[Rfam]
Shown here is a 66-nucleotide sequence from Streptomyces sp. Tu6071, a member of the family "Pistol ribozyme". The sequence is in the family's curated seed alignment. A reference for the family is Weinberg et al. (2015), "New classes of self-cleaving ribozymes revealed by comparative genomics analysis", Nat Chem Biol.
RNA sequence: AGUCGUCACGGCGACUCUAAACAGGCUUUAGGCCGUGAGCGUCGCCCCCACAGGGGGCGGGUGGCA
Dot-bracket structure: [[[[.((((((.]]]]........[[[....[)))))).].((((((((...))))))))..]]].